[Rfam]
RNA sequence: UUCUCUGGUUAGUUUUGCAGGUUUGCAUCCAGCUGUAUAAUGUGUUGCUGUGCAAAUCCAUGCAAAACUGACUGUGGCA
Numbered sequence: 001u002u003c004u005c006u007g008g009u010u011a012g013u014u015u016u017g018c019a020g021g022u023u024u025g026c027a028u029c030c031a032g033c034u035g036u037a038u039a040a041u042g043u044g045u046u047g048c049u050g051u052g053c054a055a056a057u058c059c060a061u062g063c064a065a066a067a068c069u070g071a072c073u074g075u076g077g078c079a
Stems, first nucleotide, its partner, number of pairs: 003077002006074014020059002022056007031049003
mir-19 microRNA precursor family: a 79-nucleotide RNA sequence from Anolis carolinensis.
It scores 88 bits against the family's covariance model.
The family's consensus secondary structure was predicted with RNAalifold.
Rfam 15.1 lists 2,337 matches to the family in 651 species.
Its family is annotated with miRNA-mediated post-transcriptional gene silencing and RISC complex in the Gene Ontology.